[Rfam]
The record is a 198-nucleotide RNA from Setaria italica, which matches "MIR1435 microRNA precursor family" in Rfam. Lineage of the source: Eukaryota > Tracheophyta > Mesangiospermae > Liliopsida > Setaria. Pairs were carried over by alignment from the consensus structure, which was predicted with RNAalifold.

RNA sequence: UAGUUUUGUACUAAAUCAAACUUCUCUAACUUGGACCAAGUUUAUAGAAAAACAUUAGCAUCUGCAAUAUGAAAUAAAUGCACUAUCAAGACAUAUUUCAUGGUGGAUUUAAUGAAACUAAUUUGAUGUUGUAGAUAUUGGUGCAUUUUUCUACAAACUUGGUCAAAGUUAGAUAAGUUUAACUUAGGACAGCUAAAA
Numbered sequence: 001u002a003g004u005u006u007u008g009u010a011c012u013a014a015a016u017c018a019a020a021c022u023u024c025u026c027u028a029a030c031u032u033g034g035a036c037c038a039a040g041u042u043u044a045u046a047g048a049a050a051a052a053c054a055u056u057a058g059c060a061u062c063u064g065c066a067a068u069a070u071g072a073a074a075u076a077a078a079u080g081c082a083c084u085a086u087c088a089a090g091a092c093a094u095a096u097u098u099c100a101u102g103g104u105g106g107a108u109u110u111a112a113u114g115a116a117a118c119u120a121a122u123u124u125g126a127u128g129u130u131g132u133a134g135a136u137a138u139u140g141g142u143g144c145a146u147u148u149u150u151c152u153a154c155a156a157a158c159u160u161g162g163u164c165a166a167a168g169u170u171a172g173a174u175a176a177g178u179u180u181a182a183c184u185u186a187g188g189a190c191a192g193c194u195a196a197a198a
Stems, first nucleotide, its partner, number of pairs: 006192004011187004016182001018180006025173002031167002034164002045153008053143003057139002060136007070126001072124004